The record is a 76-nucleotide sequence from Pantoea agglomerans, which matches "Fluoride riboswitch aptamer (crcB RNA motif)" in Rfam. The match comes from Rfam's covariance-model search (42 bits).
[Rfam]
RNA sequence: CCGGCUCAAGGUGAUGGCGUGCCACCUUUCCCAACUGCCGGUGGGCUUUACACCGGCUGAUGACGCCUGACACUCA
Numbered sequence: 001c002c003g004g005c006u007c008a009a010g011g012u013g014a015u016g017g018c019g020u021g022c023c024a025c026c027u028u029u030c031c032c033a034a035c036u037g038c039c040g041g042u043g044g045g046c047u048u049u050a051c052a053c054c055g056g057c058u059g060a061u062g063a064c065g066c067c068u069g070a071c072a073c074u075c076a
Stems, first nucleotide, its partner, number of pairs: 010026004016067005037057007